A member of the RNA family "mir-544 microRNA precursor family" from Rhinolophus ferrumequinum, 97 nucleotides long.
RNA sequence: AUCAUGGGGAAUCUUGUUGAAAUGCAGAUUCUGUUUCAGUAGAUCUAGAAGGGGGACUGAGAUUCUGCAUUUCUAACACGCUCCCAGGUGAUGCCAU
Number, nucleotide and partner (000 for none) at each position: 001a000002u000003c090004a089005u088006g000007g000008g084009g083010a082011a000012u000013c080014u000015u078016g077017u076018u075019g074020a072021a071022a070023u000024g068025c067026a066027g065028a064029u000030u062031c061032u060033g000034u000035u000036u000037c000038a000039g000040u000041a000042g000043a000044u000045c000046u000047a000048g000049a000050a000051g000052g000053g000054g000055g000056a000057c000058u000059g000060a032061g031062a030063u000064u028065c027066u026067g025068c024069a000070u022071u021072u020073c000074u019075a018076a017077c016078a015079c000080g013081c000082u010083c009084c008085c000086a000087g000088g005089u004090g003091a000092u000093g000094c000095c000096a000097u000
On this family, see Chiang et al., Genes Dev 2010: "Mammalian microRNAs: experimental evaluation of novel and previously annotated genes".